[Rfam]
The family of this 59-nucleotide RNA from Leucobacter luti is "msiK RNA".
The source organism's lineage runs through Bacteria, Bacillati, Micrococcales, Microbacteriaceae and Leucobacter.
The family's RNA type in Rfam is cis-regulatory element.
RNA sequence: GGGCGCCGUCUUCUACAACGGAUCGUCCGGCACGUGCCUGCCGGUGGAGGAAACAUGUC
Numbered sequence: 001g002g003g004c005g006c007c008g009u010c011u012u013c014u015a016c017a018a019c020g021g022a023u024c025g026u027c028c029g030g031c032a033c034g035u036g037c038c039u040g041c042c043g044g045u046g047g048a049g050g051a052a053a054c055a056u057g058u059c
Base pairs, nucleotide, nucleotide: 009051010050011049012048013047014046015045027044028043029042030041031040032039